[Rfam]
RNA sequence: CAAUGCGAUGAUGCAGGAGAUUGCGUCUUGGACGGUAACUUCUGCGGAGUAUGUCCGGUCAUCGGGCG
Numbered sequence: 001c002a003a004u005g006c007g008a009u010g011a012u013g014c015a016g017g018a019g020a021u022u023g024c025g026u027c028u029u030g031g032a033c034g035g036u037a038a039c040u041u042c043u044g045c046g047g048a049g050u051a052u053g054u055c056c057g058g059u060c061a062u063c064g065g066g067c068g
Base pairs, nucleotide, nucleotide: 013045014044015043017042018041019040024034025033026032027031052068053067054066055065056064057063
The family of this 68-nucleotide RNA sequence is "S10-Clostridia ribosomal protein leader". Pairs were carried over by alignment from the consensus structure, which is taken from published work. Rfam classes the family as a cis-regulatory leader. A reference for the family is Eckert and Weinberg (2020), "Discovery of 20 novel ribosomal leader candidates in bacteria and archaea", BMC Microbiol.